[Rfam]
Nucleotides: 069
Base pairs, nucleotide, nucleotide: 004066005065006064007061008060010059011058013056015055017053018052019051020050024049026047027046029045030044031043033041
Number, partner (000 for none) and nucleotide at each position: 001000c002000c003000a004066g005065u006064c007061g008060u009000a010059g011058c012000c013056g014000a015055u016000a017053u018052u019051c020050c021000a022000c023000a024049g025000a026047a027046g028000a029045g030044g031043g032000c033041c034000a035000a036000g037000g038000a039000c040000c041033g042000a043031c044030c045029c046027c047026u048000g049024u050020g051019g052018a053017a054000c055015a056013c057000c058011g059010c060008g061007c062000u063000c064006g065005a066004c067000c068000g069000g

Shown here is a 69-nucleotide RNA sequence from Bombyx mori, a member of the family "mir-3389 microRNA precursor family".
NCBI's taxonomy places the organism under Eukaryota, Panorpida, Heteroneura, Ditrysia, Bombyx.
The match comes from Rfam's covariance-model search (76 bits).